[Rfam]
RNA sequence: GAGGUCUCUGUCACGGGUGGCACACGUCAGGCAGCUUGACAGCUCUGCAUGUGGAAUGACAUCGAGAGAUUUUGGAAGCAUAACUUUUUUUGGUAUUUGAGAAGCUAGUGAUCAUUUGUCCCAACAUUCCU
Number, nucleotide and partner (000 for none) at each position: 001g000002a000003g000004g079005u078006c000007u076008c075009u022010g021011u020012c019013a018014c000015g000016g000017g000018u013019g012020g011021c010022a009023c051024a050025c000026g048027u047028c000029a000030g044031g043032c042033a000034g040035c000036u000037u000038g000039a000040c034041a000042g032043c031044u030045c000046u000047g027048c026049a000050u024051g023052u074053g073054g072055a071056a070057u069058g000059a000060c000061a000062u000063c000064g000065a000066g000067a000068g000069a057070u056071u055072u054073u053074g052075g008076a007077a000078g005079c004080a000081u000082a000083a000084c000085u000086u000087u000088u000089u000090u000091u000092g000093g000094u000095a000096u000097u000098u000099g129100a128101g127102a000103a000104g125105c000106u123107a000108g121109u000110g120111a119112u118113c000114a000115u000116u000117u000118g112119u111120c110121c108122c000123a106124a000125c104126a000127u101128u100129c099130c000131u000
The record is a 131-nucleotide RNA sequence from Galemys pyrenaicus, which matches "U11 spliceosomal RNA" in Rfam. The base pairs follow the family's consensus structure, which is taken from published work. The match comes from Rfam's covariance-model search (44 bits). The organism belongs to Galemys, within Eukaryota. The family is grouped with related families in Rfam's "U1 clan".